[Rfam]
RNA sequence: UGGCUACAAAAUAACUUAUUCUAUAGCCACUUUAAAAUACGAUAAUUACUAUGUUAAUUUACAAGAUUGUAGUAACUCCUUACUAAGUGGUUUACUAUAACAUUAUAGUAAAUAUCCCCAUGUGUUAUAGUAACCCAACUAUCGUAAAUAUGUAUUGACAUUAUCGUAAAUUAAUAUAUAAAAUUAUCUUAAAUGAAGAUGGCUAUAGAAUAACUUAUUUUAUAGCUG
Numbered sequence: 001u002g003g004c005u006a007c008a009a010a011a012u013a014a015c016u017u018a019u020u021c022u023a024u025a026g027c028c029a030c031u032u033u034a035a036a037a038u039a040c041g042a043u044a045a046u047u048a049c050u051a052u053g054u055u056a057a058u059u060u061a062c063a064a065g066a067u068u069g070u071a072g073u074a075a076c077u078c079c080u081u082a083c084u085a086a087g088u089g090g091u092u093u094a095c096u097a098u099a100a101c102a103u104u105a106u107a108g109u110a111a112a113u114a115u116c117c118c119c120a121u122g123u124g125u126u127a128u129a130g131u132a133a134c135c136c137a138a139c140u141a142u143c144g145u146a147a148a149u150a151u152g153u154a155u156u157g158a159c160a161u162u163a164u165c166g167u168a169a170a171u172u173a174a175u176a177u178a179u180a181a182a183a184u185u186a187u188c189u190u191a192a193a194u195g196a197a198g199a200u201g202g203c204u205a206u207a208g209a210a211u212a213a214c215u216u217a218u219u220u221u222a223u224a225g226c227u228g
Stems, first nucleotide, its partner, number of pairs: 001228006008221007016213014031198003038191002041188007050178013065165003069161002074155001080147004087142006093132011108116001

MIR6217 microRNA precursor family: a 228-nucleotide RNA sequence from Miscanthus lutarioriparius. Rfam links the family to the GO terms miRNA-mediated post-transcriptional gene silencing and RISC complex. Lineage of the source: Eukaryota > Embryophyta > Euphyllophyta > Andropogonodae > Miscanthus.